Description
A member of the RNA family "ASpks TB sRNA" from Streptomyces tubercidicus, 75 nucleotides long. It is annotated as an antisense RNA.
RNA sequence: CUUCACCGUGCCGAGCCACAGCGGGCGGCCGGCUUCCCGUUCCUGGCCAUAGGUGGCCAGCAGCGCCUGCGCCUC
Numbered sequence: 001c002u003u004c005a006c007c008g009u010g011c012c013g014a015g016c017c018a019c020a021g022c023g024g025g026c027g028g029c030c031g032g033c034u035u036c037c038c039g040u041u042c043c044u045g046g047c048c049a050u051a052g053g054u055g056g057c058c059a060g061c062a063g064c065g066c067c068u069g070c071g072c073c074u075c
Base pairs, nucleotide, nucleotide: 016024017023032070033069038065039064043060044059045058047056048055049054